[Rfam]
RNA sequence: GUGCCCUUCCUGUGAUGAAACCUGUGUUGGUAGGGACAUCUGAGACUUGAUGAAUGCCAACUUCUCUGAUGGCAGUGC
Numbered sequence: 001g002u003g004c005c006c007u008u009c010c011u012g013u014g015a016u017g018a019a020a021c022c023u024g025u026g027u028u029g030g031u032a033g034g035g036a037c038a039u040c041u042g043a044g045a046c047u048u049g050a051u052g053a054a055u056g057c058c059a060a061c062u063u064c065u066c067u068g069a070u071g072g073c074a075g076u077g078c
Stems, first nucleotide, its partner, number of pairs: 001078004
RNA: Small nucleolar RNA SNORD74
Organism: Loxodonta africana